RNA: mir-393 microRNA precursor family
RNA sequence: GGUGGGAGUUCCUAAGGGAUCACAUUGAUCCAUUAUCAAUUGAAUUUCAAUGGAAUUCACGGAUUAAUGCCUUUUUGUUCAUUUGGUUAGUUAAAUGGAUCAUGCGAUCUCUUAGGAAUUCUCCAU
Numbered sequence: 001g002g003u004g005g006g007a008g009u010u011c012c013u014a015a016g017g018g019a020u021c022a023c024a025u026u027g028a029u030c031c032a033u034u035a036u037c038a039a040u041u042g043a044a045u046u047u048c049a050a051u052g053g054a055a056u057u058c059a060c061g062g063a064u065u066a067a068u069g070c071c072u073u074u075u076u077g078u079u080c081a082u083u084u085g086g087u088u089a090g091u092u093a094a095a096u097g098g099a100u101c102a103u104g105c106g107a108u109c110u111c112u113u114a115g116g117a118a119u120u121c122u123c124c125a126u
Stems, first nucleotide, its partner, number of pairs: 002126005007120014023104003027101005035092001